Notes
c-di-GMP-I riboswitch aptamer: an 83-nucleotide RNA from Thalassotalea sp. PP2-459. The organism belongs to Thalassotalea, within Bacteria.
[Rfam]
RNA sequence: AUUUGUAAAAGGCAAGUAUGGUGAAACCCAUAUACGCAAAGCUUCCGACCUAAGGUAAAGACUAUGGUAGCGGGGCUGCAGAG
Numbered sequence: 001a002u003u004u005g006u007a008a009a010a011g012g013c014a015a016g017u018a019u020g021g022u023g024a025a026a027c028c029c030a031u032a033u034a035c036g037c038a039a040a041g042c043u044u045c046c047g048a049c050c051u052a053a054g055g056u057a058a059a060g061a062c063u064a065u066g067g068u069a070g071c072g073g074g075g076c077u078g079c080a081g082a083g
Stems, first nucleotide, its partner, number of pairs: 012037002017032005040077004045073003048068003055062002